The family of this 77-nucleotide RNA sequence from Ornithorhynchus anatinus is "mir-1271 microRNA precursor family".
The source organism's lineage runs through Eukaryota, Opisthokonta, Chordata, Euteleostomi and Ornithorhynchus.
Its family is annotated with RISC complex and miRNA-mediated post-transcriptional gene silencing in the Gene Ontology.
[Rfam]
RNA sequence: UAGAACAGUGCUCGGCACAUAGUAAGCGCUUAACAAAUAUUUGUUAAGCGCUUACUAUGUGCCAGGCGCUGUACUAA
Numbered sequence: 001u002a003g004a005a006c007a008g009u010g011c012u013c014g015g016c017a018c019a020u021a022g023u024a025a026g027c028g029c030u031u032a033a034c035a036a037a038u039a040u041u042u043g044u045u046a047a048g049c050g051c052u053u054a055c056u057a058u059g060u061g062c063c064a065g066g067c068g069c070u071g072u073a074c075u076a077a
Stems, first nucleotide, its partner, number of pairs: 002075002006071003010067003014063005020057005026051010
Pairs were carried over by alignment from the consensus structure, which was predicted with RNAalifold.